[Rfam]
RNA sequence: AUGCUUAAUCGCGGCUCAUCUUUCAUACCUCCCUGUUGGACUUCGGCCGAGCUUUGUGCUCGGCCUUUUUU
Numbered sequence: 001a002u003g004c005u006u007a008a009u010c011g012c013g014g015c016u017c018a019u020c021u022u023u024c025a026u027a028c029c030u031c032c033c034u035g036u037u038g039g040a041c042u043u044c045g046g047c048c049g050a051g052c053u054u055u056g057u058g059c060u061c062g063g064c065c066u067u068u069u070u071u
Stems, first nucleotide, its partner, number of pairs: 006025001008023001011020001045065008
Dot-bracket structure: .....(.(..(........)..).)...................((((((((.....))))))))......
Shown here is a 71-nucleotide RNA sequence from Antarctobacter aquimaris, a member of the family "Singlet oxygen resistance RNA X". SorX (RSs2461)like SorY is a singlet oxygen induced sRNA that counteracts oxidative stress by targeting mRNA for a transporter in Rhodobacter. It also has an impact on resistance against organic hydroperoxides. It targets SD sequence of potA mRNA via an aSD sequence. The aSD sequence and some neighbouring nucleotides are identical to the one of SorY (targets takP mRNA). A search with the family's covariance model found it, with a score of 51 bits.